RNA sequence: GGGCAGCCAUCGCCGAAUCCCCACAGGGCGCGAGCCCGGGGAGCCGGGGACCCACCGUCCCCAGGGGUGAAUCGUGUGCCUUCGCGUCCGUGCGGAGGGACGCGUAGGAGACCUUCCUGCUCCGAACCCGUCAGCUAACCCGGUAGGCGAGAAGGAAGGAAAG
Numbered sequence: 001g002g003g004c005a006g007c008c009a010u011c012g013c014c015g016a017a018u019c020c021c022c023a024c025a026g027g028g029c030g031c032g033a034g035c036c037c038g039g040g041g042a043g044c045c046g047g048g049g050a051c052c053c054a055c056c057g058u059c060c061c062c063a064g065g066g067g068u069g070a071a072u073c074g075u076g077u078g079c080c081u082u083c084g085c086g087u088c089c090g091u092g093c094g095g096a097g098g099g100a101c102g103c104g105u106a107g108g109a110g111a112c113c114u115u116c117c118u119g120c121u122c123c124g125a126a127c128c129c130g131u132c133a134g135c136u137a138a139c140c141c142g143g144u145a146g147g148c149g150a151g152a153a154g155g156a157a158g159g160a161a162a163g
Stems, first nucleotide, its partner, number of pairs: 011149004018042005043144006053064001065129003073104004107123004
RNA: c-di-AMP riboswitch aptamer (ydaO/yuaA leader)
Organism: Streptomyces inusitatus